[Rfam]
RNA sequence: AGGAGGAUCAGCCGCAGUGGCUAUGGCAACUCUGGAAGCCUGGAUUCAGCCUCCGCAGGAACUACCGGGCUCGGGGCUCUCGGUUCUCCGUCCGCAGGGCCUGGAGCCUCCGGGGCGGG
Numbered sequence: 001a002g003g004a005g006g007a008u009c010a011g012c013c014g015c016a017g018u019g020g021c022u023a024u025g026g027c028a029a030c031u032c033u034g035g036a037a038g039c040c041u042g043g044a045u046u047c048a049g050c051c052u053c054c055g056c057a058g059g060a061a062c063u064a065c066c067g068g069g070c071u072c073g074g075g076g077c078u079c080u081c082g083g084u085u086c087u088c089c090g091u092c093c094g095c096a097g098g099g100c101c102u103g104g105a106g107c108c109u110c111c112g113g114g115g116c117g118g119g
Stems, first nucleotide, its partner, number of pairs: 002111005009103003012099002019092003025086001028085003033082003039075004
This 119-nucleotide RNA from Nyctereutes procyonoides belongs to the Rfam family "mir-8834 microRNA precursor family".
The family has 2 seed sequences and 13,926 matches in Rfam 15.1.
It scores 45 bits against the family's covariance model.
The source organism's lineage runs through Eukaryota, Craniata, Tetrapoda, Caniformia and Nyctereutes.
Gene Ontology terms of the family: miRNA-mediated post-transcriptional gene silencing and RISC complex.